Description: Lysine riboswitch aptamer: a 178-nucleotide sequence from Acetivibrio straminisolvens. Pairs were carried over by alignment from the consensus structure, which is taken from published work. It scores 130 bits against the family's covariance model.
RNA sequence: AUGUUUGAUAGAGGUGCAGUUUUCAAUAGUAAGUUUUCUGAAAAGUUUGAGCUUUGAUGAAGAAAGCUGAAAGGGUCAACUGCCGAAGAUUGUAUCUGCUCAAAAAGGUACGGUCUGGUUGUACGGUUAAUAGCUGUAUGACUGUCAUCAAGUAAUUUGAUGGAGCGCUAUCAGUUCA
Numbered sequence: 001a002u003g004u005u006u007g008a009u010a011g012a013g014g015u016g017c018a019g020u021u022u023u024c025a026a027u028a029g030u031a032a033g034u035u036u037u038c039u040g041a042a043a044a045g046u047u048u049g050a051g052c053u054u055u056g057a058u059g060a061a062g063a064a065a066g067c068u069g070a071a072a073g074g075g076u077c078a079a080c081u082g083c084c085g086a087a088g089a090u091u092g093u094a095u096c097u098g099c100u101c102a103a104a105a106a107g108g109u110a111c112g113g114u115c116u117g118g119u120u121g122u123a124c125g126g127u128u129a130a131u132a133g134c135u136g137u138a139u140g141a142c143u144g145u146c147a148u149c150a151a152g153u154a155a156u157u158u159g160a161u162g163g164a165g166c167g168c169u170a171u172c173a174g175u176u177c178a
Base pairs, nucleotide, nucleotide: 006173007172008171009170010169011168016083017082018081019080020079021078024075032068033067034066035065036064037063038062039061087116088115089114090113091112092111093110094109095108096107097106117143118142119141120140121139122138123137124136125135126134127133145163146162147161148160149159150158151157
Dot-bracket structure: .....((((((....((((((..(.......((((((((.....................))))))))......)..))))))...(((((((((((........)))))))))))(((((((((((.....))))))))))).(((((((.....)))))))....)))))).....